[Rfam]
This 82-nucleotide sequence from Semnornis frantzii belongs to the Rfam family "Small nucleolar RNA SNORD45".

RNA sequence: GGCCAGUGAUGACGUUGGUCUGGGUUACCUGAACUGGAGCUGAUGCCCAACCCAUAUAGCUCUAGAAUUACUCUGAGGCCCA
Numbered sequence: 001g002g003c004c005a006g007u008g009a010u011g012a013c014g015u016u017g018g019u020c021u022g023g024g025u026u027a028c029c030u031g032a033a034c035u036g037g038a039g040c041u042g043a044u045g046c047c048c049a050a051c052c053c054a055u056a057u058a059g060c061u062c063u064a065g066a067a068u069u070a071c072u073c074u075g076a077g078g079c080c081c082a
Stems, first nucleotide, its partner, number of pairs: 001080004

A reference for the family is Galardi et al. (2002), "Purified box C/D snoRNPs are able to reproduce site-specific 2'-O-methylation of target RNA in vitro", Mol Cell Biol. By type it is a C/D-box small nucleolar RNA. The source organism's lineage runs through Eukaryota, Vertebrata, Neognathae, Piciformes and Semnornis. A search with the family's covariance model found it, with a score of 42 bits.